[Rfam]
Overview
The family of this 100-nucleotide RNA from Salipiger aestuarii is "TPP riboswitch aptamer (THI element)". Pairs were carried over by alignment from the consensus structure, which is taken from published work. A search with the family's covariance model found it, with a score of 71 bits. The organism belongs to Salipiger, within Bacteria.
RNA sequence: UAGCCCACCUCGGGGCGUCCGAAAGGGCUGAGAUGCACGAUGCGAACCCGUUGAACCUGACCCGGUUAACACCGGCGGAGGGAAGGUGACGGCAUCAGGC
Numbered sequence: 001u002a003g004c005c006c007a008c009c010u011c012g013g014g015g016c017g018u019c020c021g022a023a024a025g026g027g028c029u030g031a032g033a034u035g036c037a038c039g040a041u042g043c044g045a046a047c048c049c050g051u052u053g054a055a056c057c058u059g060a061c062c063c064g065g066u067u068a069a070c071a072c073c074g075g076c077g078g079a080g081g082g083a084a085g086g087u088g089a090c091g092g093c094a095u096c097a098g099g100c
Stems, first nucleotide, its partner, number of pairs: 006088005011050004016044001017028004035043003056081003062075004